[Rfam]
RNA sequence: GGUUGUCGGAGGAGUUCGCCUUAAUUCACAAUC
Numbered sequence: 001g002g003u004u005g006u007c008g009g010a011g012g013a014g015u016u017c018g019c020c021u022u023a024a025u026u027c028a029c030a031a032u033c
Stems, first nucleotide, its partner, number of pairs: 001033006008027001009022004

Background:
The record is a 33-nucleotide sequence, which matches "S4-Flavobacteria ribosomal protein leader" in Rfam. Rfam's curators put it in the seed alignment. The base pairs follow the family's consensus structure, which is taken from published work. Clan: Ribosomal Protein S4 Leader clan.